[Rfam]
RNA sequence: GUCCUGAUCCGGGCCCCUCUGGCGAGAGCUGCCGGCUCUCUCGCGAUGUCGGAUCUUCUUU
Numbered sequence: 001g002u003c004c005u006g007a008u009c010c011g012g013g014c015c016c017c018u019c020u021g022g023c024g025a026g027a028g029c030u031g032c033c034g035g036c037u038c039u040c041u042c043g044c045g046a047u048g049u050c051g052g053a054u055c056u057u058c059u060u061u
Stems, first nucleotide, its partner, number of pairs: 006055007022044007
Shown here is a 61-nucleotide sequence from Aurantimonas sp. 22II-16-19i, a member of the family "terC RNA".
Lineage of the source: Bacteria > Pseudomonadota > Alphaproteobacteria > Hyphomicrobiales > Aurantimonas.
By type it is a cis-regulatory element.